[Rfam]
Source information:
This 137-nucleotide RNA from Treponema phagedenis belongs to the Rfam family "TD-1 RNA". For this family Rfam cites "Identification of 22 candidate structured RNAs in bacteria using the CMfinder comparative genomics pipeline" (Weinberg et al., Nucleic Acids Res, 2007). It scores 76 bits against the family's covariance model. The family's RNA type in Rfam is cis-regulatory element.
RNA sequence: GUUUGUCAGCGAGUUUCGCUUUUGUGCUUUGCAAUGCGAAACAUCGUGUAUUGAAAGUGCUUUUUCAGGCUCCGCCUUACAAAAGCACAAAAAAAUUUUUUCGGAAUUUAAUAAUUCCUCAAAAAUUUUUUGUAGGA
Numbered sequence: 001g002u003u004u005g006u007c008a009g010c011g012a013g014u015u016u017c018g019c020u021u022u023u024g025u026g027c028u029u030u031g032c033a034a035u036g037c038g039a040a041a042c043a044u045c046g047u048g049u050a051u052u053g054a055a056a057g058u059g060c061u062u063u064u065u066c067a068g069g070c071u072c073c074g075c076c077u078u079a080c081a082a083a084a085g086c087a088c089a090a091a092a093a094a095a096u097u098u099u100u101u102c103g104g105a106a107u108u109u110a111a112u113a114a115u116u117c118c119u120c121a122a123a124a125a126u127u128u129u130u131u132g133u134a135g136g137a
Base pairs, nucleotide, nucleotide: 011045012044013042014041015040016039017038018037019036057088058087059086060085061084062083063082064081090131091130092129093128094127095126096125097124098123099122100121103118104117105116106115107114108113